[Rfam]
RNA sequence: UUGGGUUUGUUCUAGGUAUGGUCCCAGGGAUCCCAGAUCAAACCAGGCCCCUGGGCCUAUCCUAGAACCAACCUAAAC
Numbered sequence: 001u002u003g004g005g006u007u008u009g010u011u012c013u014a015g016g017u018a019u020g021g022u023c024c025c026a027g028g029g030a031u032c033c034c035a036g037a038u039c040a041a042a043c044c045a046g047g048c049c050c051c052u053g054g055g056c057c058u059a060u061c062c063u064a065g066a067a068c069c070a071a072c073c074u075a076a077a078c
Stems, first nucleotide, its partner, number of pairs: 001076007009068008018060004023055007033047002

Notes:
The record is a 78-nucleotide RNA from Eptesicus fuscus, which matches "mir-331 microRNA precursor family" in Rfam. The source organism's lineage runs through Eukaryota, Teleostomi, Tetrapoda, Amniota and Eptesicus.